Shown here is a 302-nucleotide sequence from Cepphus grylle, a member of the family "Metazoan signal recognition particle RNA". The organism belongs to Cepphus, within Eukaryota. Gene Ontology terms of the family: SRP-dependent cotranslational protein targeting to membrane, signal sequence recognition and signal recognition particle, endoplasmic reticulum targeting. It is annotated as a non-coding RNA gene. A search with the family's covariance model found it, with a score of 199 bits. The family has 91 seed sequences and 383,523 matches in Rfam 15.1. The base pairs follow the family's consensus structure, which is taken from published work.

RNA sequence: GUUGGGCACGGUGGCUUGUGCCUGUAAUCCGAGUGCUGGGGAGGCUGAGGCUGGUGGAUGGCUAGAGCCUGGGGGUUCUGGGCUGCAGCGAGCUGUGCCAAGCAGGUGUCCGUGCUAAGGCUGGCAUCGAUAUGGUGGUCCUGGGGGAACCGAGGGCUACCAAGUCGCCUAAAGAGGGGUGAACUGGCCCAGGUCGGAGACGGAGCAGGUCAAAGCUCCCGUGCUGGUCAGUAGCAGGAUGGCGCCUGUGAAUGCUGGUGCCUGUAGCACUGCCCGGGCAAGAGAGCGGGACCCAGUUUUCC
Numbered sequence: 001g002u003u004g005g006g007c008a009c010g011g012u013g014g015c016u017u018g019u020g021c022c023u024g025u026a027a028u029c030c031g032a033g034u035g036c037u038g039g040g041g042a043g044g045c046u047g048a049g050g051c052u053g054g055u056g057g058a059u060g061g062c063u064a065g066a067g068c069c070u071g072g073g074g075g076u077u078c079u080g081g082g083c084u085g086c087a088g089c090g091a092g093c094u095g096u097g098c099c100a101a102g103c104a105g106g107u108g109u110c111c112g113u114g115c116u117a118a119g120g121c122u123g124g125c126a127u128c129g130a131u132a133u134g135g136u137g138g139u140c141c142u143g144g145g146g147g148a149a150c151c152g153a154g155g156g157c158u159a160c161c162a163a164g165u166c167g168c169c170u171a172a173a174g175a176g177g178g179g180u181g182a183a184c185u186g187g188c189c190c191a192g193g194u195c196g197g198a199g200a201c202g203g204a205g206c207a208g209g210u211c212a213a214a215g216c217u218c219c220c221g222u223g224c225u226g227g228u229c230a231g232u233a234g235c236a237g238g239a240u241g242g243c244g245c246c247u248g249u250g251a252a253u254g255c256u257g258g259u260g261c262c263u264g265u266a267g268c269a270c271u272g273c274c275c276g277g278g279c280a281a282g283a284g285a286g287c288g289g290g291a292c293c294c295a296g297u298u299u300u301c302c
Stems, first nucleotide, its partner, number of pairs: 001045003004023008028042003047300008059289001061287003067279007078272001080270001082268007092256001094254003098250001102249008110238002113236005119229009128167004133162010144151002168174001176219005185212005194203003